[Rfam]
RNA sequence: CUGGGCCAACAGCAGACGCCCGAUAAAUCGAGGUGGCUUCCACCCAAGCUCUGC
Numbered sequence: 001c002u003g004g005g006c007c008a009a010c011a012g013c014a015g016a017c018g019c020c021c022g023a024u025a026a027a028u029c030g031a032g033g034u035g036g037c038u039u040c041c042a043c044c045c046a047a048g049c050u051c052u053g054c
Base pairs, nucleotide, nucleotide: 002022003021004020005019006018012054013053014052015051016050032044033043034042035041036040

Shown here is a 54-nucleotide sequence from Parasphingorhabdus halotolerans, a member of the family "chrB-b RNA".
A search with the family's covariance model found it, with a score of 43 bits.
Rfam classes the family as a cis-regulatory element.